A member of the RNA family "Acido-Lenti-1 RNA" from Granulicella tundricola, 45 nucleotides long. It is annotated as a small RNA. Lineage of the source: Bacteria > Acidobacteriota > Terriglobales > Acidobacteriaceae > Granulicella tundricola. The family's consensus secondary structure is taken from published work. The family has 87 seed sequences and 2,607 matches in Rfam 15.1. The match comes from Rfam's covariance-model search (43 bits).
RNA sequence: CCUGGGCCUUCGGCCCAGGCUGAUAUGUUUCGGGCCUUUGGCCCU
Numbered sequence: 001c002c003u004g005g006g007c008c009u010u011c012g013g014c015c016c017a018g019g020c021u022g023a024u025a026u027g028u029u030u031c032g033g034g035c036c037u038u039u040g041g042c043c044c045u
Stems, first nucleotide, its partner, number of pairs: 001019008032044005